The family of this 142-nucleotide sequence from Paenibacillus xylanivorans is "SAM riboswitch aptamer (S box leader)". The source organism's lineage runs through Bacteria, Bacillota, Bacilli, Paenibacillaceae and Paenibacillus. Gene Ontology term of the family: regulation of gene expression.

RNA sequence: UUCUUAUCGAGAGCGGCGGAGGGACAGGCCCGAUGAAGCCCGGCAACCGAUUUAUAACUGCAUGACAGCUGUGUCAUUCUUUAUAGAUGUUAGGUGCUAAUUCCUACAAAAUGGUGCAAGGCACAAUUUUGGCAGAUGAGAA
Number, nucleotide and partner (000 for none) at each position: 001u142002u141003c140004u139005u138006a137007u136008c135009g000010a000011g000012a000013g041014c000015g040016g039017c038018g000019g000020a000021g031022g030023g029024a000025c000026a105027g104028g103029c023030c022031c021032g000033a000034u000035g000036a000037a000038g017039c016040c015041c013042g098043g097044c096045a095046a000047c094048c093049g090050a000051u000052u000053u000054a000055u000056a000057a000058c000059u000060g000061c000062a000063u000064g000065a000066c000067a000068g000069c000070u000071g000072u000073g000074u000075c000076a000077u000078u000079c000080u000081u000082u000083a000084u000085a000086g000087a000088u000089g000090u049091u000092a000093g048094g047095u045096g044097c043098u042099a000100a000101u000102u134103c028104c027105u026106a000107c131108a130109a129110a128111a127112u126113g000114g000115u000116g000117c000118a000119a000120g000121g000122c000123a000124c000125a000126a112127u111128u110129u109130u108131g107132g000133c000134a102135g008136a007137u006138g005139a004140g003141a002142a001

Record summary
It scores 76 bits against the family's covariance model.